[Rfam]
Rfam assigns this 87-nucleotide RNA sequence from Stutzerimonas stutzeri to the family "t44 RNA". Rfam's curators write: This family consists of a number of bacterial RNA genes of between 135 and 170 bases in length. The t44 gene has been identified in several species of enteric bacteria but homologs have also been identified in Pseudomonas and Coxiella species. The t44 gene is found between the map and rpsB genes in all species in the full alignment apart from Shigella flexneri. The function of this RNA is unknown. The family's consensus secondary structure was predicted with LocARNA. It scores 70 bits against the family's covariance model.
RNA sequence: ACCCGUCGAGCCUGACCCCACACACGUGUCGACACGGUAUCCUGGGUGCUCGCAAGAGUUGGAUAUCGGGACGCGUGGAGGCCUAAC
Numbered sequence: 001a002c003c004c005g006u007c008g009a010g011c012c013u014g015a016c017c018c019c020a021c022a023c024a025c026g027u028g029u030c031g032a033c034a035c036g037g038u039a040u041c042c043u044g045g046g047u048g049c050u051c052g053c054a055a056g057a058g059u060u061g062g063a064u065a066u067c068g069g070g071a072c073g074c075g076u077g078g079a080g081g082c083c084u085a086a087c
Base pairs, nucleotide, nucleotide: 023077024076025075026074027073028072029071030070035068036067037066038065039064040063041062042061048059049058050057051056